[Rfam]
RNA sequence: UAGAGGAGGAAACAAAAUGAACGAAGUUCAUUUUUAUAAAUGUUUCCGACGAACUGCCGCCGACCAAGGGGAGGGGGCGCAACAAUAU
Numbered sequence: 001u002a003g004a005g006g007a008g009g010a011a012a013c014a015a016a017a018u019g020a021a022c023g024a025a026g027u028u029c030a031u032u033u034u035u036a037u038a039a040a041u042g043u044u045u046c047c048g049a050c051g052a053a054c055u056g057c058c059g060c061c062g063a064c065c066a067a068g069g070g071g072a073g074g075g076g077g078c079g080c081a082a083c084a085a086u087a088u
Stems, first nucleotide, its partner, number of pairs: 008047006016032006056078003060074002064070002
About this RNA:
GA-cis RNA: an 88-nucleotide sequence from Eubacterium sp. CAG:161. The source organism's lineage runs through Bacteria, Bacillati, Bacillota, Eubacteriales and Eubacterium. The match comes from Rfam's covariance-model search (87 bits).